[Rfam]
Nucleotides: 034
Stems, first nucleotide, its partner, number of pairs: 001022005009033002
Number, partner (000 for none) and nucleotide at each position: 001022a002021g003020a004019g005018g006000u007000u008000c009033u010032a011000g012000c013000a014000c015000a016000u017000c018005c019004c020003u021002c022001u023000a024000u025000a026000a027000a028000a029000a030000a031000c032010u033009a034000a
PreQ1 (pre queuosine) riboswitch aptamer: a 34-nucleotide sequence. Gene Ontology term of the family: queuosine biosynthetic process. The pairing is the family consensus, mapped onto this sequence. The sequence is in the family's curated seed alignment. This family is a bacterial riboswitch that binds to the metabolite preQ1, an intermediate in the biosynthesis of the modified nucleoside queuosine from GTP. One example of this riboswitch is located in the leader of the Bacillus subtilis ykvJKLM (queCDEF) operon which encodes four genes necessary for queuosine production. PreQ1 binding to the riboswitch aptamer is thought to induce premature transcription termination within the leader to down-regulate expression of these genes.